RNA: ZMP/ZTP riboswitch aptamer (pfl RNA motif)
RNA sequence: UGUCCGGGCCGUGACUGGCGCUGAGGUGGAGUACCACCGGGGAGCGGUCCGUGUGGUUGCCGCGCGCCUGGGCGAGAGAC
Numbered sequence: 001u002g003u004c005c006g007g008g009c010c011g012u013g014a015c016u017g018g019c020g021c022u023g024a025g026g027u028g029g030a031g032u033a034c035c036a037c038c039g040g041g042g043a044g045c046g047g048u049c050c051g052u053g054u055g056g057u058u059g060c061c062g063c064g065c066g067c068c069u070g071g072g073c074g075a076g077a078g079a080c
Stems, first nucleotide, its partner, number of pairs: 003053001005051008015041002017068005026037004057075005